Shown here is a 52-nucleotide sequence from Homo sapiens, a member of the family "mir-1976 microRNA precursor family".
RNA sequence: GCAGCAAGGAAGGCAGGGGUCCUAAGGUGUGUCCUCCUGCCCUCCUUGCUGU
Number, nucleotide and partner (000 for none) at each position: 001g052002c051003a050004g049005c048006a047007a046008g045009g044010a043011a000012g041013g040014c039015a038016g037017g036018g034019g033020u000021c031022c029023u000024a000025a000026g000027g000028u000029g022030u000031g021032u000033c019034c018035u000036c017037c016038u015039g014040c013041c012042c000043u010044c009045c008046u007047u006048g005049c004050u003051g002052u001
Pairs were carried over by alignment from the consensus structure, which was predicted with RNAalifold. Lineage of the source: Eukaryota > Metazoa > Teleostomi > Amniota > Homo. Its family is annotated with RISC complex and miRNA-mediated post-transcriptional gene silencing in the Gene Ontology. The family has 2 seed sequences and 21 matches in Rfam 15.1.